Glycine riboswitch aptamer: a 105-nucleotide RNA. The base pairs follow the family's consensus structure.

RNA sequence: CGACCCCGUGCGGGAGAGUCCCGGGCCCGCUGACACAGCGAGCCGGGGCGCCGAAGGAGCAAAUCCUCCCCGGAAUCUCUCAGGCACCCGUACCGCACGGACGAG
Numbered sequence: 001c002g003a004c005c006c007c008g009u010g011c012g013g014g015a016g017a018g019u020c021c022c023g024g025g026c027c028c029g030c031u032g033a034c035a036c037a038g039c040g041a042g043c044c045g046g047g048g049c050g051c052c053g054a055a056g057g058a059g060c061a062a063a064u065c066c067u068c069c070c071c072g073g074a075a076u077c078u079c080u081c082a083g084g085c086a087c088c089c090g091u092a093c094c095g096c097a098c099g100g101a102c103g104a105g
Base pairs, nucleotide, nucleotide: 006100007099008098009097010096011095012094013093020048021047022046050085051084052083053081054080057079058078059077064072